[Rfam]
RNA sequence: CAAGACCAAGCUUAGGAGUGGCCAUCCACGGUAAGAGGUGCCAUAGGCACCCGCCACUCCUAUUUCCCAAAGGGCUUGGUCUUGGGUAGGGG
Number, nucleotide and partner (000 for none) at each position: 001c000002a000003a000004g000005a000006c085007c084008a083009a082010g081011c000012u079013u078014a061015g060016g059017a058018g057019u056020g055021g054022c053023c000024a000025u000026c000027c000028a000029c000030g000031g000032u000033a000034a000035g052036a000037g051038g050039u049040g048041c047042c000043a000044u000045a000046g000047g041048c040049a039050c038051c037052c035053g022054c021055c020056a019057c018058u017059c016060c015061u014062a000063u000064u000065u074066c073067c072068c000069a000070a000071a000072g067073g066074g065075c000076u000077u000078g013079g012080u000081c010082u009083u008084g007085g006086g000087u000088a000089g000090g000091g000092g000

Shown here is a 92-nucleotide RNA sequence, a member of the family "DUF1874 RNA". Pairs were carried over by alignment from the consensus structure, which is taken from published work.